A member of the RNA family "Group II catalytic intron D1-D4-3" from Shewanella baltica, 189 nucleotides long. Group II introns are found in rRNA, tRNA and mRNA of organelles in fungi, plants and protists, and also in mRNA in bacteria. The literature on the family includes a 2001 paper in Trends Genet by Bonen and Vogel, "The ins and outs of group II introns". Rfam links the family to the GO term Group II intron splicing. The source organism's lineage runs through Bacteria, Pseudomonadati, Shewanellaceae, Shewanella and Shewanella baltica.
RNA sequence: UUAUCCGCGAGGAUUGCUCUGAAGGAAGCCGCUAGCAAAUUUAUGAGCUGAUAAACAAGAACAUCACAUGAGGCGUAGACUAGAGGUGAGUUGGCAGAGCUUCCCCACGCAGUAUGGGAACAAGACGAUGAAACCACGUGAUCAAAUAGCCACCAUAAAUGAUGCCGCAGUGCAGAGAAAGUUCAUGUU
Numbered sequence: 001u002u003a004u005c006c007g008c009g010a011g012g013a014u015u016g017c018u019c020u021g022a023a024g025g026a027a028g029c030c031g032c033u034a035g036c037a038a039a040u041u042u043a044u045g046a047g048c049u050g051a052u053a054a055a056c057a058a059g060a061a062c063a064u065c066a067c068a069u070g071a072g073g074c075g076u077a078g079a080c081u082a083g084a085g086g087u088g089a090g091u092u093g094g095c096a097g098a099g100c101u102u103c104c105c106c107a108c109g110c111a112g113u114a115u116g117g118g119a120a121c122a123a124g125a126c127g128a129u130g131a132a133a134c135c136a137c138g139u140g141a142u143c144a145a146a147u148a149g150c151c152a153c154c155a156u157a158a159a160u161g162a163u164g165c166c167g168c169a170g171u172g173c174a175g176a177g178a179a180a181g182u183u184c185a186u187g188u189u
Stems, first nucleotide, its partner, number of pairs: 001016001003014004028189001030187002035182002040176003044172002047168002050165001062164005073156001075154001078151001080149002083147001085135003090129004